Shown here is a 35-nucleotide sequence from Ictidomys tridecemlineatus, a member of the family "Iron response element I". A search with the family's covariance model found it, with a score of 41 bits. Rfam classes the family as a cis-regulatory element. Rfam links the family to the GO term response to iron ion.
RNA sequence: CCGUUUCUUACUUCAACAGUGUUUGAAUGGUACAG
Numbered sequence: 001c002c003g004u005u006u007c008u009u010a011c012u013u014c015a016a017c018a019g020u021g022u023u024u025g026a027a028u029g030g031u032a033c034a035g
Base pairs, nucleotide, nucleotide: 001035003033005032007030008029010028012027013026014025015024016023017021
Dot-bracket structure: (.(.(.((.(.((((((...).)))))))).)).)